Shown here is a 96-nucleotide RNA from Nicotiana sylvestris, a member of the family "MIR6152 microRNA precursor family". The family's consensus secondary structure was predicted with RNAalifold.
[Rfam]
RNA sequence: UGGACAGAUUAUUGUAUUCGACUGUAUUCACGGCGUGAAACAGGGAAUUACAUCGUUUUUAAAUGAAAAGUAAAUCAAUUAACACAAUAAACUCCU
Number, nucleotide and partner (000 for none) at each position: 001u000002g095003g094004a093005c000006a000007g000008a000009u090010u089011a088012u087013u086014g085015u084016a000017u082018u081019c000020g080021a079022c000023u077024g076025u000026a075027u074028u073029c000030a071031c070032g000033g000034c065035g064036u063037g059038a058039a057040a056041c055042a000043g053044g000045g000046a000047a000048u000049u000050a000051c000052a000053u043054c000055g041056u040057u039058u038059u037060u000061a000062a000063a036064u035065g034066a000067a000068a000069a000070g031071u030072a000073a028074a027075u026076c024077a023078a000079u021080u020081a018082a017083c000084a015085c014086a013087a012088u011089a010090a009091a000092c000093u004094c003095c002096u000